Notes
Rfam assigns this 116-nucleotide RNA from Speluncibacter jeojiensis to the family "SAM (S-adenosyl methionine) riboswitch aptamer". Its family is annotated with regulation of gene expression and S-adenosylmethionine metabolic process in the Gene Ontology. From the family's description: SAM-IV is a mRNA element that regulates gene expression via direct sensing of S-adenosylmethionine (SAM or AdoMet). SAM-IV riboswitches share conserved nucleotide positions with the previously described SAM-I riboswitches sequence analysis and molecular recognition experiments suggest that SAM-I and SAM-IV riboswitches share similar ligand binding sites, but have different scaffolds. The family's consensus secondary structure is taken from published work.
RNA sequence: CUUCACGAGAUGCGGCGACAAGCUCCGACUGGGCCGCGCACCAACCCCAACUGCGUGUACGGGGUGGUUCGGAUGACGAAGCGGCACAUGCUGGUUGGCGUGGGCAAGAGCGCUCC
Numbered sequence: 001c002u003u004c005a006c007g008a009g010a011u012g013c014g015g016c017g018a019c020a021a022g023c024u025c026c027g028a029c030u031g032g033g034c035c036g037c038g039c040a041c042c043a044a045c046c047c048c049a050a051c052u053g054c055g056u057g058u059a060c061g062g063g064g065u066g067g068u069u070c071g072g073a074u075g076a077c078g079a080a081g082c083g084g085c086a087c088a089u090g091c092u093g094g095u096u097g098g099c100g101u102g103g104g105c106a107a108g109a110g111c112g113c114u115c116c
Stems, first nucleotide, its partner, number of pairs: 001081004009039001011038006021030002040068003045064003050058001084105002087102006